[Rfam]
RNA sequence: AAGGCGGUUUACCGAAAAGCCUUAUAAAUGAGUAGGUA
Numbered sequence: 001a002a003g004g005c006g007g008u009u010u011a012c013c014g015a016a017a018a019g020c021c022u023u024a025u026a027a028a029u030g031a032g033u034a035g036g037u038a
Stems, first nucleotide, its partner, number of pairs: 002022004011037003
RNA: DUF805b RNA
Organism: Flammeovirga pacifica